[Rfam]
RNA: Lysine riboswitch aptamer
Organism: Conservatibacter flavescens
Nucleotides: 178
Base pairs, nucleotide, nucleotide: 007172008171009170010169011168016079017078018077021073022072023071024070030064031063032062033061034060035059036058037057083114084113085112086111087110088109090107091106092105093104094103115141116140117139118138119137120136121135123133124132143163144162145161146160147159148158149157
Number, partner (000 for none) and nucleotide at each position: 001000g002000c003000g004000u005000a006000c007172g008171g009170a010169a011168g012000a013000g014000g015000u016079g017078c018077g019000u020000c021073a022072u023071u024070c025000a026000g027000g028000u029000c030064g031063u032062u033061a034060u035059u036058u037057u038000u039000u040000g041000a042000u043000u044000u045000c046000g047000g048000a049000a050000u051000c052000c053000a054000u055000a056000a057037a058036a059035a060034a061033u062032a063031a064030u065000c066000a067000g068000g069000g070024g071023a072022a073021u074000g075000u076000u077018c078017g079016c080000c081000g082000a083114g084113a085112u086111a087110a088109a089000u090107u091106a092105c093104u094103u095000a096000u097000c098000c099000g100000a101000a102000u103094a104093g105092g106091u107090a108000c109088u110087u111086u112085a113084u114083c115141g116140g117139c118138u119137u120136u121135g122000a123133g124132g125000g126000u127000u128000g129000a130000a131000u132124c133123u134000c135121c136120a137119a138118a139117g140116c141115u142000g143163u144162c145161a146160c147159u148158a149157a150000u151000g152000a153000u154000u155000a156000a157149u158148u159147a160146g161145u162144g163143g164000a165000g166000c167000g168011c169010u170009u171008c172007u173000a174000a175000g176000a177000u178000c